This 89-nucleotide RNA sequence from Marinococcus luteus belongs to the Rfam family "Glycine riboswitch aptamer". Its family is annotated with glycine biosynthetic process in the Gene Ontology.
RNA sequence: AUGAUGGUAAGGGGAGAGACUGCCAGGCAGCGCCGAAGGAGCAAGCCGUAACAGGUGAAUCUCUCAGGCAAACAGACUCUUACUGGACG
Numbered sequence: 001a002u003g004a005u006g007g008u009a010a011g012g013g014g015a016g017a018g019a020c021u022g023c024c025a026g027g028c029a030g031c032g033c034c035g036a037a038g039g040a041g042c043a044a045g046c047c048g049u050a051a052c053a054g055g056u057g058a059a060u061c062u063c064u065c066a067g068g069c070a071a072a073c074a075g076a077c078u079c080u081u082a083c084u085g086g087a088c089g
Base pairs, nucleotide, nucleotide: 006084007083008082009081010080011079012078013077020030021029022028023027032069033068034067035065036064039063040062041061045056046055